Rfam assigns this 74-nucleotide sequence from Medioppia subpectinata to the family "mir-124 microRNA precursor family". For this family Rfam cites "Computational identification of Drosophila microRNA genes" (Lai et al., Genome Biol, 2003).
RNA sequence: UACUCUCCGUGUUCACUCCGUUGCCUCGAUGUGUAGCUCCAGUACCAUAAGGCACGCGGUGAAUGCCAAGAGCU
Dot-bracket structure: ..((((..((((((((...((..(((...((((............)))))))...)).))))))))..))))..
Gene Ontology terms of the family: miRNA-mediated post-transcriptional gene silencing and RISC complex.